Shown here is a 397-nucleotide RNA sequence from Prevotella sp. tc2-28, a member of the family "Bacterial RNase P class A".
About the family: Ribonuclease P (RNase P) is a ubiquitous endoribonuclease, found in archaea, bacteria and eukarya as well as chloroplasts and mitochondria. Its best characterised activity is the generation of mature 5'-ends of tRNAs by cleaving the 5'-leader elements of precursor-tRNAs. Cellular RNase Ps are ribonucleoproteins.
The organism belongs to Prevotella, within Bacteria.

[Rfam]
RNA sequence: GCAGUGUCACGGUUUGUCGCUGGUGCUAACCGCCUCUUUACGGAGAGGGUAGAGCACGAGAGGAAAGUCCGGGCAGCAUAGGACACGCUACUGGUGAAAAUGCCAGCUAUUGGUGACAGUAGGAUAUGGGAGAAGAGAAUGACCGCCUCGCUUCGGUGAGGUAAGGGUGAGAAGGUGGUGUAAGAGACCACCAGCCGGCGGGUGAUCGUCGGGCUGUUCCAUCUAGCGGCUGCAAGUUCGCGUAUACCAUCGGUUGAGGGUUGUCCGCCCAAAACUCCUUGCGGGUUACGAUGGAGGGUGGAAUGCUUGAGCUGUCAGGUAACUGGCAGACUAGAUAAAUGACAGACGCCCUUUCUUUGAAGGGGUACAGAACCCGGCUUAUAGGGACACUGCUUUU
Numbered sequence: 001g002c003a004g005u006g007u008c009a010c011g012g013u014u015u016g017u018c019g020c021u022g023g024u025g026c027u028a029a030c031c032g033c034c035u036c037u038u039u040a041c042g043g044a045g046a047g048g049g050u051a052g053a054g055c056a057c058g059a060g061a062g063g064a065a066a067g068u069c070c071g072g073g074c075a076g077c078a079u080a081g082g083a084c085a086c087g088c089u090a091c092u093g094g095u096g097a098a099a100a101u102g103c104c105a106g107c108u109a110u111u112g113g114u115g116a117c118a119g120u121a122g123g124a125u126a127u128g129g130g131a132g133a134a135g136a137g138a139a140u141g142a143c144c145g146c147c148u149c150g151c152u153u154c155g156g157u158g159a160g161g162u163a164a165g166g167g168u169g170a171g172a173a174g175g176u177g178g179u180g181u182a183a184g185a186g187a188c189c190a191c192c193a194g195c196c197g198g199c200g201g202g203u204g205a206u207c208g209u210c211g212g213g214c215u216g217u218u219c220c221a222u223c224u225a226g227c228g229g230c231u232g233c234a235a236g237u238u239c240g241c242g243u244a245u246a247c248c249a250u251c252g253g254u255u256g257a258g259g260g261u262u263g264u265c266c267g268c269c270c271a272a273a274a275c276u277c278c279u280u281g282c283g284g285g286u287u288a289c290g291a292u293g294g295a296g297g298g299u300g301g302a303a304u305g306c307u308u309g310a311g312c313u314g315u316c317a318g319g320u321a322a323c324u325g326g327c328a329g330a331c332u333a334g335a336u337a338a339a340u341g342a343c344a345g346a347c348g349c350c351c352u353u354u355c356u357u358u359g360a361a362g363g364g365g366u367a368c369a370g371a372a373c374c375c376g377g378c379u380u381a382u383a384g385g386g387a388c389a390c391u392g393c394u395u396u397u
Base pairs, nucleotide, nucleotide: 001393002392003391004390005389006388007387008386010384011382012347013346014345015344016343017342018341020060021059023057024056025055026054027053065380066379067378069377070376071375072374073373074232075231076230077229081282083280086228087227088226089225090224091106092105093104094103095102109120110119111118112117122223123222127221128220129219130218131217143166144165145162146161147160148159149158150157151156174192175191176190177189178188179187194214195212196211197210198209199208200207201206236304237303238302239301247294248293249292250291251290273287274286275285276284277283312329313328314327315326316325317324318323

The family's consensus secondary structure is taken from published work. On this family, see Frank and Pace, Annu Rev Biochem 1998: "Ribonuclease P: unity and diversity in a tRNA processing ribozyme".